Rfam assigns this 139-nucleotide RNA sequence from Daucus carota to the family "Small nucleolar RNA snoR145".
The family's consensus secondary structure was predicted with mfold.
The family has 19 seed sequences and 286 matches in Rfam 15.1.
RNA sequence: AAGCGAAGGUCCCAGCAGAGGGGAAAGAACUCCAUUGAGGCCUCUCUAACACUAAAAUUUACCUUCGCAAAUUGAAGGCCGAAUCGUAGGAUUCCUAAGCUUUUCUAUGCUUUUGAUUCUUAUAAUCGCCCACAUUUUG
Numbered sequence: 001a002a003g004c005g006a007a008g009g010u011c012c013c014a015g016c017a018g019a020g021g022g023g024a025a026a027g028a029a030c031u032c033c034a035u036u037g038a039g040g041c042c043u044c045u046c047u048a049a050c051a052c053u054a055a056a057a058u059u060u061a062c063c064u065u066c067g068c069a070a071a072u073u074g075a076a077g078g079c080c081g082a083a084u085c086g087u088a089g090g091a092u093u094c095c096u097a098a099g100c101u102u103u104u105c106u107a108u109g110c111u112u113u114u115g116a117u118u119c120u121u122a123u124a125a126u127c128g129c130c131c132a133c134a135u136u137u138u139g
Base pairs, nucleotide, nucleotide: 003068004067005066006065007064008063009062011020013018026045027044030039031038032037078130080128081127082126090119091118093116094115097112098111099110100109

By type it is an H/ACA-box small nucleolar RNA. For this family Rfam cites "Mining small RNA sequencing data: a new approach to identify small nucleolar RNAs in Arabidopsis" (Chen and Wu, Nucleic Acids Res, 2009).